[Rfam]
RNA sequence: AUUCGAGCAUUGAACGGACAAAGUAGUGUCUAUUUCCCUAUUUCAGAGAGCUGAUGGUUGGUGUGAAUCAGUAUAAAGAUAUGACAUGAAAUUCAUCCUGGAGCAUCUUUCAUGACGAAUUAUUACUUGUGAUGAAAGACGGUAGUUUAUACCGUUAACAAAUAGAGUGGUGAAGUUUCUUCACAACUAGGGUGGUACCGCGAUCAUUUAUCGUCCCUACA
Number, nucleotide and partner (000 for none) at each position: 001a000002u000003u000004c000005g000006a000007g104008c103009a000010u000011u000012g000013a000014a000015c000016g098017g097018a096019c000020a000021a000022a000023g000024u000025a000026g087027u086028g085029u084030c083031u000032a000033u000034u000035u000036c000037c000038c000039u075040a074041u073042u000043u000044c000045a000046g000047a000048g000049a000050g072051c071052u070053g069054a068055u067056g000057g000058u000059u000060g000061g000062u000063g000064u000065g000066a000067a055068u054069c053070a052071g051072u050073a041074u040075a039076a000077a000078g000079a000080u000081a000082u000083g030084a029085c028086a027087u026088g000089a000090a000091a000092u000093u000094c000095a000096u018097c017098c016099u000100g000101g000102a000103g008104c007105a000106u000107c138108u137109u136110u135111c134112a133113u132114g000115a000116c000117g000118a000119a000120u000121u000122a000123u000124u000125a000126c000127u000128u000129g000130u000131g000132a113133u112134g111135a110136a109137a108138g107139a000140c154141g153142g152143u000144a000145g000146u000147u000148u000149a000150u000151a000152c142153c141154g140155u000156u000157a000158a000159c000160a000161a000162a000163u000164a000165g000166a000167g000168u000169g000170g184171u183172g182173a181174a180175g179176u000177u000178u000179c175180u174181u173182c172183a171184c170185a000186a000187c000188u000189a218190g217191g216192g215193u000194g000195g000196u000197a000198c000199c000200g214201c213202g212203a211204u210205c000206a000207u000208u000209u000210a204211u203212c202213g201214u200215c192216c191217c190218u189219a000220c000221a000
Rfam assigns this 221-nucleotide RNA sequence from Bacillus anthracis to the family "T-box leader". It is one of the family's seed sequences. The source organism's lineage runs through Bacteria, Bacillota, Caryophanales, Bacillaceae and Bacillus anthracis. The base pairs follow the family's consensus structure, which is taken from published work. On this family, see Grundy et al., J Bacteriol 1994: "Interaction between the acceptor end of tRNA and the T box stimulates antitermination in the Bacillus subtilis tyrS gene: a new role for the discriminator base".